[Rfam]
RNA sequence: AAAAACCACUAGGGGUGCGCGAAAAGCGCUGAGAGAAGAUGAACUUCAACCCUUUGAACCUGAUCCGAGAAUACCGGCGGAGGAAAGUGGCGAUGAGACGCA
Numbered sequence: 001a002a003a004a005a006c007c008a009c010u011a012g013g014g015g016u017g018c019g020c021g022a023a024a025a026g027c028g029c030u031g032a033g034a035g036a037a038g039a040u041g042a043a044c045u046u047c048a049a050c051c052c053u054u055u056g057a058a059c060c061u062g063a064u065c066c067g068a069g070a071a072u073a074c075c076g077g078c079g080g081a082g083g084a085a086a087g088u089g090g091c092g093a094u095g096a097g098a099c100g101c102a
Base pairs, nucleotide, nucleotide: 006090007089008088009087010086011053012052013051014050017029018028019027020026036046037045038044059083060082061081065077066076067075